RNA: mir-9242 microRNA precursor family
RNA sequence: GGCCACCUUCUGUGGGGCAAUCGAUCACGGGGCCCCCAGAUUGAUUGCCCUGCAGAGGGAGGCC
Numbered sequence: 001g002g003c004c005a006c007c008u009u010c011u012g013u014g015g016g017g018c019a020a021u022c023g024a025u026c027a028c029g030g031g032g033c034c035c036c037c038a039g040a041u042u043g044a045u046u047g048c049c050c051u052g053c054a055g056a057g058g059g060a061g062g063c064c
Stems, first nucleotide, its partner, number of pairs: 001064004006059021029036002